[Rfam]
RNA sequence: GAAGACGCGCAAAAUUGUUAUCAUCCCUAUUCUCUACGAUAUUUUAUUCGGCCACCACUGGUGGCCAUUUU
Numbered sequence: 001g002a003a004g005a006c007g008c009g010c011a012a013a014a015u016u017g018u019u020a021u022c023a024u025c026c027c028u029a030u031u032c033u034c035u036a037c038g039a040u041a042u043u044u045u046a047u048u049c050g051g052c053c054a055c056c057a058c059u060g061g062u063g064g065c066c067a068u069u070u071u
Stems, first nucleotide, its partner, number of pairs: 023040003028036002050066007